[Rfam]
RNA sequence: GGACUAAUUAUGAUACAUUUUAUAUCUUAGCGGAUUUCAAUGAGAUUUUAUUGAUGAUCUGAAUGUUACACACCCUGAAGCCU
Numbered sequence: 001g002g003a004c005u006a007a008u009u010a011u012g013a014u015a016c017a018u019u020u021u022a023u024a025u026c027u028u029a030g031c032g033g034a035u036u037u038c039a040a041u042g043a044g045a046u047u048u049u050a051u052u053g054a055u056g057a058u059c060u061g062a063a064u065g066u067u068a069c070a071c072a073c074c075c076u077g078a079a080g081c082c083u
Stems, first nucleotide, its partner, number of pairs: 001083002004080002
A member of the RNA family "Small nucleolar RNA R11/Z151" from Papaver somniferum, 83 nucleotides long. For this family Rfam cites "Identification of 66 box C/D snoRNAs in Arabidopsis thaliana: extensive gene duplications generated multiple isoforms predicting new ribosomal RNA 2'-O-methylation sites" (Barneche et al., J Mol Biol, 2001). The organism belongs to Papaver, within Eukaryota. A search with the family's covariance model found it, with a score of 61 bits. The base pairs follow the family's consensus structure, which was predicted with PFOLD. Gene Ontology terms of the family: nucleolus and RNA processing.